[Rfam]
RNA sequence: UUUCCCAUUUACUUUGCUGCCAUGGUUUUUGUAGUAGCAUGGACAGUUAUACGGAUGGGAUACAGUAACUUUGGUGUUCUUUCUAUUGGGAAAGGAGUAAUCAUUUAUCCUUCCUUGAAAGACACCAUACAUUU
Numbered sequence: 001u002u003u004c005c006c007a008u009u010u011a012c013u014u015u016g017c018u019g020c021c022a023u024g025g026u027u028u029u030u031g032u033a034g035u036a037g038c039a040u041g042g043a044c045a046g047u048u049a050u051a052c053g054g055a056u057g058g059g060a061u062a063c064a065g066u067a068a069c070u071u072u073g074g075u076g077u078u079c080u081u082u083c084u085a086u087u088g089g090g091a092a093a094g095g096a097g098u099a100a101u102c103a104u105u106u107a108u109c110c111u112u113c114c115u116u117g118a119a120a121g122a123c124a125c126c127a128u129a130c131a132u133u134u
Base pairs, nucleotide, nucleotide: 003060004059005058006057007056008055016047017046018045019044021042023039024038026037027036072127073126074125075124076123077122078121080120081119082118083117088113091112092111094109095106096105097104098103
RNA: Small nucleolar RNA SNORA20